Rfam assigns this 61-nucleotide RNA sequence from Solanum tuberosum to the family "Plastid-psbA-2 3UTR RNA".
It scores 56 bits against the family's covariance model.
The organism belongs to Solanum, within Eukaryota.
For this family Rfam cites "Retrograde signaling in plants: A critical review focusing on the GUN pathway and beyond" (Richter et al., Plant Commun, 2023).
The family's RNA type in Rfam is cis-regulatory element.
The family's consensus secondary structure was predicted with LocARNA.
From the family's description: Plastid psbA-2 is a non-coding RNA (ncRNA) present in plastids.

RNA sequence: GAAAAGGAGCAAUAAUAAUUUUCUUGUUCUAUCAAGAAGGUGCUAUUGCUCCUUUUUUGGG
Numbered sequence: 001g002a003a004a005a006g007g008a009g010c011a012a013u014a015a016u017a018a019u020u021u022u023c024u025u026g027u028u029c030u031a032u033c034a035a036g037a038a039g040g041u042g043c044u045a046u047u048g049c050u051c052c053u054u055u056u057u058u059g060g061g
Stems, first nucleotide, its partner, number of pairs: 001057014016042002019038001022037005